[Rfam]
RNA sequence: GCAGACUCACUCUGUUCUUUGCUGCUUUCUCCAGCCUAGAACUUUUGCUGACUGCUACAUGAACAUGCAGAAUCAAACAGUUCACUGGUUUUUAUUAAAAGGCUGGUGUAUGUUUGUUCUGCUACAAUACA
Number, nucleotide and partner (000 for none) at each position: 001g055002c054003a053004g052005a000006c050007u000008c000009a000010c000011u000012c000013u000014g042015u041016u040017c039018u038019u000020u000021g000022c034023u033024g032025c000026u000027u000028u000029c000030u000031c000032c024033a023034g022035c000036c000037u000038a018039g017040a016041a015042c014043u000044u000045u000046u000047g000048c000049u000050g006051a000052c004053u003054g002055c001056u000057a000058c000059a000060u000061g000062a000063a000064c000065a000066u000067g122068c121069a120070g119071a118072a117073u116074c000075a115076a114077a113078c112079a111080g000081u000082u000083c108084a107085c106086u105087g104088g103089u102090u101091u100092u099093u000094a000095u000096u000097a000098a000099a092100a091101g090102g089103c088104u087105g086106g085107u084108g083109u000110a000111u079112g078113u077114u076115u075116g073117u072118u071119c070120u069121g068122c067123u000124a000125c000126a000127a000128u000129a000130c000131a000
A member of the RNA family "Small nucleolar RNA SNORA77" from Pleuronectes platessa, 131 nucleotides long. It is annotated as an H/ACA-box small nucleolar RNA. A reference for the family is Schattner et al. (2006), "A computational screen for mammalian pseudouridylation guide H/ACA RNAs", RNA. The match comes from Rfam's covariance-model search (54 bits). From the family's description: ACA63 (SNORA77) is a member of the H/ACA class of snoRNAs that guide the sites of modification of uridines to pseudouridines. This snoRNA was identified by computational screening and its expression in mouse experimentally verified by Northern blot and primer extension analysis. ACA63 is proposed to guide the pseudouridylation of 18S rRNA U814.